A member of the RNA family "U4 spliceosomal RNA" from Hymenochirus boettgeri, 131 nucleotides long. Rfam links the family to the GO terms U4 snRNP and spliceosomal tri-snRNP complex assembly. Lineage of the source: Eukaryota > Opisthokonta > Eumetazoa > Euteleostomi > Hymenochirus.

RNA sequence: AGCUUUGCGAGGCAGUAUCAAGCCAAUGAGGUUAACCGAGGCGUGAUUAUGCUAGUUGAAAACUUUUCCCAAUACCCCCAUGUGAACUUGAAAUACAGUCAGCAUUGGAAUUUUGACAGUCUCUCAGGAGG
Dot-bracket structure: ................((((.(((.....((....))..))).))))..............................((((((..(((........)))..))).)))...........((((....))))
Numbered sequence: 001a002g003c004u005u006u007g008c009g010a011g012g013c014a015g016u017a018u019c020a021a022g023c024c025a026a027u028g029a030g031g032u033u034a035a036c037c038g039a040g041g042c043g044u045g046a047u048u049a050u051g052c053u054a055g056u057u058g059a060a061a062a063c064u065u066u067u068c069c070c071a072a073u074a075c076c077c078c079c080a081u082g083u084g085a086a087c088u089u090g091a092a093a094u095a096c097a098g099u100c101a102g103c104a105u106u107g108g109a110a111u112u113u114u115g116a117c118a119g120u121c122u123c124u125c126a127g128g129a130g131g
Stems, first nucleotide, its partner, number of pairs: 017047004022042003030037002078108003081104003086099003120131004
The base pairs follow the family's consensus structure, which is taken from published work.